Annotation: This 176-nucleotide sequence from Oryza nivara belongs to the Rfam family "MIR807 microRNA precursor family". Taxonomically the source falls in Oryza (Eukaryota, Embryophyta, Tracheophyta, Poaceae). Gene Ontology terms of the family: miRNA-mediated post-transcriptional gene silencing and RISC complex. The family's consensus secondary structure was predicted with WAR.

[Rfam]
RNA sequence: AACCACACUAUCGAUGUAUAGAUUCACCUGUGAGAUGACGUGGGUGUUCCAUCUAGGAUGAGGACGUGGCAUCCUAUUAAUUUUGUGCGAUUGCUGGUAAUAAAAUGCCAUAUUCUCGUCCUAGGCGAAACAGUCAUGUUAUCUCGCGGGUGAAUCUAUUCAUUGAUAGUGUGGUU
Numbered sequence: 001a002a003c004c005a006c007a008c009u010a011u012c013g014a015u016g017u018a019u020a021g022a023u024u025c026a027c028c029u030g031u032g033a034g035a036u037g038a039c040g041u042g043g044g045u046g047u048u049c050c051a052u053c054u055a056g057g058a059u060g061a062g063g064a065c066g067u068g069g070c071a072u073c074c075u076a077u078u079a080a081u082u083u084u085g086u087g088c089g090a091u092u093g094c095u096g097g098u099a100a101u102a103a104a105a106u107g108c109c110a111u112a113u114u115c116u117c118g119u120c121c122u123a124g125g126c127g128a129a130a131c132a133g134u135c136a137u138g139u140u141a142u143c144u145c146g147c148g149g150g151u152g153a154a155u156c157u158a159u160u161c162a163u164u165g166a167u168a169g170u171g172u173g174g175u176u
Base pairs, nucleotide, nucleotide: 001176002175003174004173005172006171007170009168010167011166012165013164014163015162018159019158021156022155023154024153025152026151027150028149030147031146032145033144035142036141037140038139039138041136042135043134045132046131047130048129052125054123055122057120058119063114064113069108070107071106072105075102076101077100078099079098086097